Rfam assigns this 44-nucleotide sequence from Planococcaceae bacterium Storch 2/2-2 to the family "PreQ1 (pre queuosine) riboswitch aptamer". Rfam describes the family as follows. This family is a bacterial riboswitch that binds to the metabolite preQ1, an intermediate in the biosynthesis of the modified nucleoside queuosine from GTP. One example of this riboswitch is located in the leader of the Bacillus subtilis ykvJKLM (queCDEF) operon which encodes four genes necessary for queuosine production. PreQ1 binding to the riboswitch aptamer is thought to induce premature transcription termination within the leader to down-regulate expression of these genes. The pairing is the family consensus, mapped onto this sequence. Lineage of the source: Bacteria > Bacillati > Bacilli > Caryophanales > Caryophanaceae. Rfam 15.1 lists 873 matches to the family in 692 species.

[Rfam]
RNA sequence: GGAAUAGAGGUUCGAAAAAUCCCUCUUCAAAAAACUAAGGAGCU
Numbered sequence: 001g002g003a004a005u006a007g008a009g010g011u012u013c014g015a016a017a018a019a020u021c022c023c024u025c026u027u028c029a030a031a032a033a034a035c036u037a038a039g040g041a042g043c044u
Base pairs, nucleotide, nucleotide: 006026007025008024009023010022016036